[Rfam]
RNA: SAM riboswitch aptamer (S box leader)
Organism: Geosporobacter ferrireducens
RNA sequence: GCCUUAUCAAGAGCGGCGGAGGGGAUAGGCCCUAUGAAGCCCGGCAACCGGUAGAAUUACGCGGUGCUAAAUCCUACAGAACUUGUAUUCUGGAAGAUGAGGA
Numbered sequence: 001g002c003c004u005u006a007u008c009a010a011g012a013g014c015g016g017c018g019g020a021g022g023g024g025a026u027a028g029g030c031c032c033u034a035u036g037a038a039g040c041c042c043g044g045c046a047a048c049c050g051g052u053a054g055a056a057u058u059a060c061g062c063g064g065u066g067c068u069a070a071a072u073c074c075u076a077c078a079g080a081a082c083u084u085g086u087a088u089u090c091u092g093g094a095a096g097a098u099g100a101g102g103a
Base pairs, nucleotide, nucleotide: 002102003101004100005099006098007097008096013042015041016040017039021032022031023030026076027075028074029073043068044067045066046065048064049063050060053057072095077092078091079090080089081088